6S-Flavo RNA: a 127-nucleotide sequence from Polaribacter irgensii. Lineage of the source: Bacteria > Flavobacteriia > Flavobacteriales > Flavobacteriaceae > Polaribacter irgensii. The family's consensus secondary structure is taken from published work.
RNA sequence: ACUCAACGAGUAUCUAUUAUAAAGGAUAAGUCUCAGUUGCUAAAGCAAGCCAUAGAAUUCGAAUUUAUUCUUUUUCAGGUGGAUCCUUGAUCAGCUAGUUAGUCCUAAACCUGUAAUAAUGGAGUUU
Number, nucleotide and partner (000 for none) at each position: 001a000002c000003u000004c000005a000006a000007c000008g000009a000010g000011u000012a000013u000014c000015u000016a000017u000018u000019a000020u000021a000022a000023a106024g105025g104026a103027u102028a000029a000030g000031u000032c000033u000034c000035a096036g095037u094038u093039g000040c000041u000042a000043a088044a087045g086046c000047a000048a000049g000050c082051c081052a080053u079054a000055g000056a000057a000058u000059u000060c000061g000062a000063a000064u000065u000066u000067a000068u000069u000070c000071u000072u000073u000074u000075u000076c000077a000078g000079g053080u052081g051082g050083a000084u000085c000086c045087u044088u043089g000090a000091u000092c000093a038094g037095c036096u035097a000098g000099u000100u000101a000102g027103u026104c025105c024106u023107a000108a000109a000110c000111c000112u000113g000114u000115a000116a000117u000118a000119a000120u000121g000122g000123a000124g000125u000126u000127u000